RNA sequence: CAGCUAAGAGGUGGGAACGGCUACCCCACGCACCGGAAACGGUAAGUAAGCCCGCAAGGGUCCAAGAGAUGAGUGUUAGCAAGCUCCUUAGUUA
Numbered sequence: 001c002a003g004c005u006a007a008g009a010g011g012u013g014g015g016a017a018c019g020g021c022u023a024c025c026c027c028a029c030g031c032a033c034c035g036g037a038a039a040c041g042g043u044a045a046g047u048a049a050g051c052c053c054g055c056a057a058g059g060g061u062c063c064a065a066g067a068g069a070u071g072a073g074u075g076u077u078a079g080c081a082a083g084c085u086c087c088u089u090a091g092u093u094a
Stems, first nucleotide, its partner, number of pairs: 002093007011029005020080004031066001032043004071086003
The family of this 94-nucleotide sequence is "skipping-rope RNA". It is one of the family's seed sequences. The base pairs follow the family's consensus structure, which is taken from published work. By type it is a small RNA.